Eukaryotic large subunit ribosomal RNA: a 417-nucleotide part of an RNA from Zymoseptoria tritici. Lineage of the source: Eukaryota > Dikarya > Dothideomycetidae > Zymoseptoria > Zymoseptoria tritici. Its family is annotated with structural constituent of ribosome and ribosome in the Gene Ontology. The base pairs follow the family's consensus structure, which is taken from published work.
[Rfam]
RNA sequence: UGACCUCGGAUCGGGUAGGGAUACCCGCUGAACUUAAGCAUAUCAAUAAGCGGAGGAAAAGAAACCAACAGGGAUUGCCCUAGUAACGGCGAGUGAAGCGGCAACAGCUCAAAUUUGAAAUCUGGCCCCCCGGCCCGAGUUGUAAUUUGUAGAGGAUGCUUCUGGGUAGCGACCGGUCUAAGUUCCUUGGAACAGGACGUCAUAGAGGGUGAGAAUCCCGUAUGCGACCGGCCCGCGCCCUCCACGUAGCUCCUUCGACGAGUCGAGUUGUUUGGGAAUGCAGCUCUAAAUGGGAGGUAAAUUUCUUCUAAAGCUAAAUACCGGCCAGAGACCGAUAGCGCACAAGUAGAGUGAUCGAAAGAUGAAAAGCACUUUGGAAAGAGAGUUAAAAAGCACGUGAAAUUGUUGAAAGGGAAG
Numbered sequence: 001u002g003a004c005c006u007c008g009g010a011u012c013g014g015g016u017a018g019g020g021a022u023a024c025c026c027g028c029u030g031a032a033c034u035u036a037a038g039c040a041u042a043u044c045a046a047u048a049a050g051c052g053g054a055g056g057a058a059a060a061g062a063a064a065c066c067a068a069c070a071g072g073g074a075u076u077g078c079c080c081u082a083g084u085a086a087c088g089g090c091g092a093g094u095g096a097a098g099c100g101g102c103a104a105c106a107g108c109u110c111a112a113a114u115u116u117g118a119a120a121u122c123u124g125g126c127c128c129c130c131c132g133g134c135c136c137g138a139g140u141u142g143u144a145a146u147u148u149g150u151a152g153a154g155g156a157u158g159c160u161u162c163u164g165g166g167u168a169g170c171g172a173c174c175g176g177u178c179u180a181a182g183u184u185c186c187u188u189g190g191a192a193c194a195g196g197a198c199g200u201c202a203u204a205g206a207g208g209g210u211g212a213g214a215a216u217c218c219c220g221u222a223u224g225c226g227a228c229c230g231g232c233c234c235g236c237g238c239c240c241u242c243c244a245c246g247u248a249g250c251u252c253c254u255u256c257g258a259c260g261a262g263u264c265g266a267g268u269u270g271u272u273u274g275g276g277a278a279u280g281c282a283g284c285u286c287u288a289a290a291u292g293g294g295a296g297g298u299a300a301a302u303u304u305c306u307u308c309u310a311a312a313g314c315u316a317a318a319u320a321c322c323g324g325c326c327a328g329a330g331a332c333c334g335a336u337a338g339c340g341c342a343c344a345a346g347u348a349g350a351g352u353g354a355u356c357g358a359a360a361g362a363u364g365a366a367a368a369g370c371a372c373u374u375u376g377g378a379a380a381g382a383g384a385g386u387u388a389a390a391a392a393g394c395a396c397g398u399g400a401a402a403u404u405g406u407u408g409a410a411a412g413g414g415a416a417g
Stems, first nucleotide, its partner, number of pairs: 024055001025053005035042002065072002076103004086094002106315004112147004118141002121138002124135004152256002154253003159249002162246001164240004169236002173231006182198001184197004201205001208218002265286007292309005349356002372383004